This 96-nucleotide RNA from Candidatus Udaeobacter sp. belongs to the Rfam family "Selenocysteine transfer RNA". The match comes from Rfam's covariance-model search (64 bits). Rfam links the family to the GO term triplet codon-amino acid adaptor activity. A reference for the family is Mizutani and Goto (2000), "Eukaryotic selenocysteine tRNA has the 9/4 secondary structure", FEBS Lett.
RNA sequence: GGAGAGUGAAGGGUGCCUGGUGGUCCUCGCGGUCUUCAAAACCGCUGUCGGUUCCGCAUACCCGGAACCGAGGUAGGUUCGAUUCCUAUCCUCUCC
Numbered sequence: 001g002g003a004g005a006g007u008g009a010a011g012g013g014u015g016c017c018u019g020g021u022g023g024u025c026c027u028c029g030c031g032g033u034c035u036u037c038a039a040a041a042c043c044g045c046u047g048u049c050g051g052u053u054c055c056g057c058a059u060a061c062c063c064g065g066a067a068c069c070g071a072g073g074u075a076g077g078u079u080c081g082a083u084u085c086c087u088a089u090c091c092u093c094u095c096c
Stems, first nucleotide, its partner, number of pairs: 001096006008089001011027003015024003029045005048071009074088004